The family of this 79-nucleotide RNA sequence from Medicago truncatula is "MIR5269 microRNA precursor family". The match comes from Rfam's covariance-model search (68 bits). The family's consensus secondary structure was predicted with RNAalifold.
[Rfam]
RNA sequence: UUGGCUUAAAUCAUUGUGGGUCUACACAUUGAAAGUAGAACCCACACAAAGUGGUGGAACAUACAUUGAUUAUAUCCAA
Numbered sequence: 001u002u003g004g005c006u007u008a009a010a011u012c013a014u015u016g017u018g019g020g021u022c023u024a025c026a027c028a029u030u031g032a033a034a035g036u037a038g039a040a041c042c043c044a045c046a047c048a049a050a051g052u053g054g055u056g057g058a059a060c061a062u063a064c065a066u067u068g069a070u071u072a073u074a075u076c077c078a079a
Base pairs, nucleotide, nucleotide: 001079002078003077004076006074009071010070011069012068013067015065016064017063018062022057023056024055025053026052027051029049030048031047